[Rfam]
RNA sequence: AUCUGGCUUAGUUAGGAGGCCAACAAUAAUAAUCAGAUUUUUGGAUCUGAUUGCCAAGGCAAUUUGAGUGGACUGUUUGUUCUCUAUCAAUUGUCCUCCAAGCAGCCUUGGACAAUC
Dot-bracket structure: ....(.(((......))).)..........(((((((((....))))))))).(((((((..((((.(.((((.((.............)).)))).)))))..)))))))......
Numbered sequence: 001a002u003c004u005g006g007c008u009u010a011g012u013u014a015g016g017a018g019g020c021c022a023a024c025a026a027u028a029a030u031a032a033u034c035a036g037a038u039u040u041u042u043g044g045a046u047c048u049g050a051u052u053g054c055c056a057a058g059g060c061a062a063u064u065u066g067a068g069u070g071g072a073c074u075g076u077u078u079g080u081u082c083u084c085u086a087u088c089a090a091u092u093g094u095c096c097u098c099c100a101a102g103c104a105g106c107c108u109u110g111g112a113c114a115a116u117c
Stems, first nucleotide, its partner, number of pairs: 005020001007018003031052009054111007063102004068098001070096004075091002
The record is a 117-nucleotide sequence from Olea europaea, which matches "Small nucleolar RNA U19" in Rfam. Its family is annotated with RNA processing and nucleolus in the Gene Ontology. It is annotated as an H/ACA-box small nucleolar RNA. A search with the family's covariance model found it, with a score of 71 bits. On this family, see Marker et al., Curr Biol 2002: "Experimental RNomics: identification of 140 candidates for small non-messenger RNAs in the plant Arabidopsis thaliana". Taxonomically the source falls in Olea europaea (Eukaryota, Viridiplantae, Streptophytina, Spermatophyta).